[Rfam]
mir-33 microRNA precursor family: a 77-nucleotide RNA from Diaphorina citri. The family has 73 seed sequences and 1,467 matches in Rfam 15.1. The organism belongs to Diaphorina, within Eukaryota. The base pairs follow the family's consensus structure, which was predicted with PFOLD.
RNA sequence: UAUGCGUGCAUUGUAGUUGCAUUGCAUGUCACCUAGUUUUAUUUCCCUCAUGCAAUGUUCCUGCAAUACAAGCCAUA
Numbered sequence: 001u002a003u004g005c006g007u008g009c010a011u012u013g014u015a016g017u018u019g020c021a022u023u024g025c026a027u028g029u030c031a032c033c034u035a036g037u038u039u040u041a042u043u044u045c046c047c048u049c050a051u052g053c054a055a056u057g058u059u060c061c062u063g064c065a066a067u068a069c070a071a072g073c074c075a076u077a
Stems, first nucleotide, its partner, number of pairs: 001077004006073001007070002010067007019058001021056007
Dot-bracket structure: ((((.(((.(((((((..(.(((((((......................))))))).)..))))))).))..)))))